[Rfam]
RNA sequence: AUCAGGGCUAGGCCGACGGGCCGAAAAGGGAGGUGCCACCUUACUCCCCUGCCCUGAGUCAACAUAAAGGUG
Numbered sequence: 001a002u003c004a005g006g007g008c009u010a011g012g013c014c015g016a017c018g019g020g021c022c023g024a025a026a027a028g029g030g031a032g033g034u035g036c037c038a039c040c041u042u043a044c045u046c047c048c049c050u051g052c053c054c055u056g057a058g059u060c061a062a063c064a065u066a067a068a069g070g071u072g
Base pairs, nucleotide, nucleotide: 002057003056004055005054006053007052008051011022012021013020014019028048029047030046031045032044037072038071039070040069041068042067

Rfam assigns this 72-nucleotide RNA sequence to the family "int-alpA RNA". The sequence is in the family's curated seed alignment. The family's consensus secondary structure is taken from published work. About the family: Acidobacteria (1 example), Planctomycetes (1 example), Proteobacteria.